The record is a 172-nucleotide sequence from Bacillus thuringiensis, which matches "Group II catalytic intron D1-D4-3" in Rfam.
[Rfam]
RNA sequence: CUUACCGUGAGGUAAGGGCUGGAGGAAGCGUGGAAUAAAAUCUUGGCUCGACGAACAGAAAUCUGAUACGAAGGCUCUAUAAAGGGAUGAGACUCCAAGACAAGUUAAAAUCCAAAAGAUGUGCGUAACUUUGUAGAGUAAAUCAGGCGAGUAAAAGAGGAAAGAUAGUGGU
Numbered sequence: 001c002u003u004a005c006c007g008u009g010a011g012g013u014a015a016g017g018g019c020u021g022g023a024g025g026a027a028g029c030g031u032g033g034a035a036u037a038a039a040a041u042c043u044u045g046g047c048u049c050g051a052c053g054a055a056c057a058g059a060a061a062u063c064u065g066a067u068a069c070g071a072a073g074g075c076u077c078u079a080u081a082a083a084g085g086g087a088u089g090a091g092a093c094u095c096c097a098a099g100a101c102a103a104g105u106u107a108a109a110a111u112c113c114a115a116a117a118g119a120u121g122u123g124c125g126u127a128a129c130u131u132u133g134u135a136g137a138g139u140a141a142a143u144c145a146g147g148c149g150a151g152u153a154a155a156a157g158a159g160g161a162a163a164g165a166u167a168g169u170g171g172u
Stems, first nucleotide, its partner, number of pairs: 001016006028172002036164001041158004046152005062147006074139003078135007085113004091106004

NCBI's taxonomy places the organism under Bacteria, Bacillati, Bacillota, Bacilli, Bacillus thuringiensis serovar pakistani. Group II introns are found in rRNA, tRNA and mRNA of organelles in fungi, plants and protists, and also in mRNA in bacteria.